[Rfam]
RNA: 6S / SsrS RNA
Organism: Magnetofaba australis
RNA sequence: GUUCCCCUGCGGUGUGCGUCAGGAGCGCAGACUUCCUGAGCCGAUACUUUUGAGCCCAAGGAGGGCCGCACUGGUCGUGGAGUGAAAGCCCCUUGUCGGGCUUACCAGAAGCGAUCAUCCGGUCGUCCGCACUUAUGUGACGGGUUCAAGAAGUUGCCCUUCAACGGCAUCUGCGGGGGAUUA
Numbered sequence: 001g002u003u004c005c006c007c008u009g010c011g012g013u014g015u016g017c018g019u020c021a022g023g024a025g026c027g028c029a030g031a032c033u034u035c036c037u038g039a040g041c042c043g044a045u046a047c048u049u050u051u052g053a054g055c056c057c058a059a060g061g062a063g064g065g066c067c068g069c070a071c072u073g074g075u076c077g078u079g080g081a082g083u084g085a086a087a088g089c090c091c092c093u094u095g096u097c098g099g100g101c102u103u104a105c106c107a108g109a110a111g112c113g114a115u116c117a118u119c120c121g122g123u124c125g126u127c128c129g130c131a132c133u134u135a136u137g138u139g140a141c142g143g144g145u146u147c148a149a150g151a152a153g154u155u156g157c158c159c160u161u162c163a164a165c166g167g168c169a170u171c172u173g174c175g176g177g178g179g180a181u182u183a
Stems, first nucleotide, its partner, number of pairs: 003180009012170004017166003032153004037148006060128003064124005072117007084105001090100002